[Rfam]
RNA sequence: GGCCAGGGGGAAAAAAGCGCUAUAUGAUGAAACAUUUAGUAUGGGCAAGCAGGGAGCUGGAAAAUUUUGCACUUAACCCUGCCC
Dot-bracket structure: ((.(((((....................................................................))))).))
Rfam assigns this 84-nucleotide sequence from Lentivirus humimdef1 to the family "HIV gag stem loop 3 (GSL3)". It is one of the family's seed sequences. Rfam describes the family as follows. This family consists of several HIV gag stem loop 3 (GSL3) sequences. GSL3 is known to direct specific packaging of HIV-1 genomic RNA. Deletion of GSL3 leads to decreases in both viral RNA packaging and dimerisation. Taxonomically the source falls in Lentivirus humimdef1 (Viruses, Artverviricota, Ortervirales, Orthoretrovirinae).